[Rfam]
RNA sequence: ACGCAGACCGCUUCCAGCGAGGCUCGGCCUCUCAUGGCCCCGUCCUUUCCUACCGUGUCUGCUAGAGAGAAAUCUGAGGCGGUUUGAGGCCCCGCGGUGACCUCCACACUGCGGGGUUAUAGGUAAACCUCGGACAUGU
Numbered sequence: 001a002c003g004c005a006g007a008c009c010g011c012u013u014c015c016a017g018c019g020a021g022g023c024u025c026g027g028c029c030u031c032u033c034a035u036g037g038c039c040c041c042g043u044c045c046u047u048u049c050c051u052a053c054c055g056u057g058u059c060u061g062c063u064a065g066a067g068a069g070a071a072a073u074c075u076g077a078g079g080c081g082g083u084u085u086g087a088g089g090c091c092c093c094g095c096g097g098u099g100a101c102c103u104c105c106a107c108a109c110u111g112c113g114g115g116g117u118u119a120u121a122g123g124u125a126a127a128c129c130u131c132g133g134a135c136a137u138g139u
Stems, first nucleotide, its partner, number of pairs: 003062006020046003026039004075132005090116006097109003
Annotation: A member of the RNA family "Small nucleolar RNA SNORA9" from Muraenolepis orangiensis, 139 nucleotides long. Rfam links the family to the GO terms nucleolus and RNA processing. Clan: SNORA9 clan. ACA9 is a member of the H/ACA class of snoRNA that guide the sites of modification of uridines to pseudouridines. By type it is an H/ACA-box small nucleolar RNA.